[Rfam]
RNA sequence: AUACUUACCUGGGCGGCGUGUAUGGGCGAUCAAGAAAGUCCAUGGCCUAGGUUGGUGACCUCCAUUGCACUUUAGGAGGGAUGUUAGCCUAAGGUCUCCCCAAGUGGGAGAGCCUACGUCAUUAUUUGUUGCCUUGGGGGCCUACGUUUGCGCGGCCCUGCC
Numbered sequence: 001a002u003a004c005u006u007a008c009c010u011g012g013g014c015g016g017c018g019u020g021u022a023u024g025g026g027c028g029a030u031c032a033a034g035a036a037a038g039u040c041c042a043u044g045g046c047c048u049a050g051g052u053u054g055g056u057g058a059c060c061u062c063c064a065u066u067g068c069a070c071u072u073u074a075g076g077a078g079g080g081a082u083g084u085u086a087g088c089c090u091a092a093g094g095u096c097u098c099c100c101c102a103a104g105u106g107g108g109a110g111a112g113c114c115u116a117c118g119u120c121a122u123u124a125u126u127u128g129u130u131g132c133c134u135u136g137g138g139g140g141c142c143u144a145c146g147u148u149u150g151c152g153c154g155g156c157c158c159u160g161c162c
Base pairs, nucleotide, nucleotide: 012120013119014118015117016048018046019045023042024041025040026039027038049090050089051088053087055084056083057082059080060079061078062076063075092115093114094113095111096110097109099107100106136161138159139158140157143154145152146151
Rfam assigns this 162-nucleotide sequence from Quercus lobata to the family "U1 spliceosomal RNA". Taxonomically the source falls in Quercus (Eukaryota, eudicotyledons, Gunneridae, rosids). Rfam classes the family as a spliceosomal small nuclear RNA.